[Rfam]
RNA sequence: AGGCAGCCUCCUUGACACUAUUAAAUGACAAGAGGGGCGUUAAACUGCUCGUAAAUUAAAUCCUUUUGCUCUUCAGAUUUGCUGAGAUUUUCUCUGAAGCUGGUCUAGUAAGCUCAAGUAUAUU
Numbered sequence: 001a002g003g004c005a006g007c008c009u010c011c012u013u014g015a016c017a018c019u020a021u022u023a024a025a026u027g028a029c030a031a032g033a034g035g036g037g038c039g040u041u042a043a044a045c046u047g048c049u050c051g052u053a054a055a056u057u058a059a060a061u062c063c064u065u066u067u068g069c070u071c072u073u074c075a076g077a078u079u080u081g082c083u084g085a086g087a088u089u090u091u092c093u094c095u096g097a098a099g100c101u102g103g104u105c106u107a108g109u110a111a112g113c114u115c116a117a118g119u120a121u122a123u124u
Base pairs, nucleotide, nucleotide: 002041003040004039007037008036009034011032012031013030014029016027017026063118064117065116068113069112070111075106076105077104078103079102081100082099083098086092087091

The family of this 124-nucleotide RNA sequence from Arachis hypogaea is "Small nucleolar RNA snoR77". Taxonomically the source falls in Arachis (Eukaryota, Spermatophyta, rosids, dalbergioids sensu lato). The family has 5 seed sequences and 649 matches in Rfam 15.1. The match comes from Rfam's covariance-model search (104 bits).